Rfam assigns this 195-nucleotide RNA from Pseudoalteromonas piratica to the family "Lysine riboswitch aptamer". The base pairs follow the family's consensus structure, which is taken from published work. On this family, see Sudarsan et al., Genes Dev 2003: "An mRNA structure in bacteria that controls gene expression by binding lysine".

RNA sequence: AGGGCUGGAAGAGGUGCGUUAUUCAGGUAGUUCAGUUGAGGAGAGCAAACUCCUAAGACUCUGAACGAGGGGAAUUAACGCCGAGAGAGUAUUGUUUUUGCUAACUCUAACUCUCGGGCGUCUGGGCUGAAUCCCAGCGACUGUCACCAAUUACUUAUUAUAAGUAAAUAUGUUUGGUGGAGAGCUUCUGGUCUU
Numbered sequence: 001a002g003g004g005c006u007g008g009a010a011g012a013g014g015u016g017c018g019u020u021a022u023u024c025a026g027g028u029a030g031u032u033c034a035g036u037u038g039a040g041g042a043g044a045g046c047a048a049a050c051u052c053c054u055a056a057g058a059c060u061c062u063g064a065a066c067g068a069g070g071g072g073a074a075u076u077a078a079c080g081c082c083g084a085g086a087g088a089g090u091a092u093u094g095u096u097u098u099u100g101c102u103a104a105c106u107c108u109a110a111c112u113c114u115c116g117g118g119c120g121u122c123u124g125g126g127c128u129g130a131a132u133c134c135c136a137g138c139g140a141c142u143g144u145c146a147c148c149a150a151u152u153a154c155u156u157a158u159u160a161u162a163a164g165u166a167a168a169u170a171u172g173u174u175u176g177g178u179g180g181a182g183a184g185c186u187u188c189u190g191g192u193c194u195u
Stems, first nucleotide, its partner, number of pairs: 006190006016081006023074001030066006085115006094106001096104001116142002119139001122137005144180007